[Rfam]
Rfam assigns this 328-nucleotide sequence from Flavobacteriaceae bacterium 144Ye to the family "Bacterial RNase P class A". It scores 204 bits against the family's covariance model. By type it is a ribozyme.
RNA sequence: CAAGUAAAUUGCCUUAUCGCUGUCUUGAUGUAAAGUCAAGGUGGAGGAAAGUCCGAACACCAUAGUGCAAACAUAGUGGUUAACAGCCACCAACCGUGAGGUUAGGAAAAGUGCAACAGAAAGAAUGUACAGGUUAUGCUGUAGUGAAAUCAGGUAAACUCUAUGUGGUGCAAUGCCAUGUAUACCAACGUUUGAGGGCUGCACGCUCGAUUGUUGGAGGGUAGGCAGCUAAAGUGUGUUGGUAACAGUACACUCAGAUAAAUGAUAGGGAUACUAACAUGAUUAUCAUUGUUAGUAACAGAAUUCGGCUUAUAAAUUUACUUAUAUA
Numbered sequence: 001c002a003a004g005u006a007a008a009u010u011g012c013c014u015u016a017u018c019g020c021u022g023u024c025u026u027g028a029u030g031u032a033a034a035g036u037c038a039a040g041g042u043g044g045a046g047g048a049a050a051g052u053c054c055g056a057a058c059a060c061c062a063u064a065g066u067g068c069a070a071a072c073a074u075a076g077u078g079g080u081u082a083a084c085a086g087c088c089a090c091c092a093a094c095c096g097u098g099a100g101g102u103u104a105g106g107a108a109a110a111g112u113g114c115a116a117c118a119g120a121a122a123g124a125a126u127g128u129a130c131a132g133g134u135u136a137u138g139c140u141g142u143a144g145u146g147a148a149a150u151c152a153g154g155u156a157a158a159c160u161c162u163a164u165g166u167g168g169u170g171c172a173a174u175g176c177c178a179u180g181u182a183u184a185c186c187a188a189c190g191u192u193u194g195a196g197g198g199c200u201g202c203a204c205g206c207u208c209g210a211u212u213g214u215u216g217g218a219g220g221g222u223a224g225g226c227a228g229c230u231a232a233a234g235u236g237u238g239u240u241g242g243u244a245a246c247a248g249u250a251c252a253c254u255c256a257g258a259u260a261a262a263u264g265a266u267a268g269g270g271a272u273a274c275u276a277a278c279a280u281g282a283u284u285a286u287c288a289u290u291g292u293u294a295g296u297a298a299c300a301g302a303a304u305u306c307g308g309c310u311u312a313u314a315a316a317u318u319u320a321c322u323u324a325u326a327u328a
Base pairs, nucleotide, nucleotide: 002323003322004321005320006319007318008317009316010315011313012270013269014268015267016266017265018264020044021043022042023041024040025039026038027037028036049311050310051309053308054307055306056305057304058170059169060168061167071166072165073164074163075162076090077089078088079087080086091105092103093102094101095100106161107160111159112158113155114154128143129142130141131140132139174227175226176225177224185217186216187215188214189213196208197207198206199205234253235252236251237250238249239248240247241246